[Rfam]
RNA sequence: GAUUAUUGAGGUGAGAAAGGGCUCCUCAUACGCUGAAUUUCAGUAAUAAGAGAUGUAGGAUACGCCGACCUACCAAUAAUC
Numbered sequence: 001g002a003u004u005a006u007u008g009a010g011g012u013g014a015g016a017a018a019g020g021g022c023u024c025c026u027c028a029u030a031c032g033c034u035g036a037a038u039u040u041c042a043g044u045a046a047u048a049a050g051a052g053a054u055g056u057a058g059g060a061u062a063c064g065c066c067g068a069c070c071u072a073c074c075a076a077u078a079a080u081c
Base pairs, nucleotide, nucleotide: 001081002080003079004078005077006076007075008074011029012028013027014026015025020066021065022064031050032044033043034042035041055073056072057071058070059069

The record is an 81-nucleotide sequence from Clostridium sartagoforme, which matches "skipping-rope RNA" in Rfam. The family's consensus secondary structure is taken from published work. Taxonomically the source falls in Clostridium sartagoforme (Bacteria, Clostridia, Clostridiaceae, Clostridium). The family's RNA type in Rfam is small RNA.